[Rfam]
RNA: TPP riboswitch aptamer (THI element)
Organism: Loigolactobacillus bifermentans
RNA sequence: UAUAAAAACUAGGGGCGCAAAUUUGCUGAGACGGUUUUACCGAACCCUUUGAACCUGUAAGGCAACCCUUGCGUAGGAAAGUUAACUGUUUUAAAG
Numbered sequence: 001u002a003u004a005a006a007a008a009c010u011a012g013g014g015g016c017g018c019a020a021a022u023u024u025g026c027u028g029a030g031a032c033g034g035u036u037u038u039a040c041c042g043a044a045c046c047c048u049u050u051g052a053a054c055c056u057g058u059a060a061g062g063c064a065a066c067c068c069u070u071g072c073g074u075a076g077g078a079a080a081g082u083u084a085a086c087u088g089u090u091u092u093a094a095a096g
Stems, first nucleotide, its partner, number of pairs: 007083004011048004016042001017026003033041003054077004058071004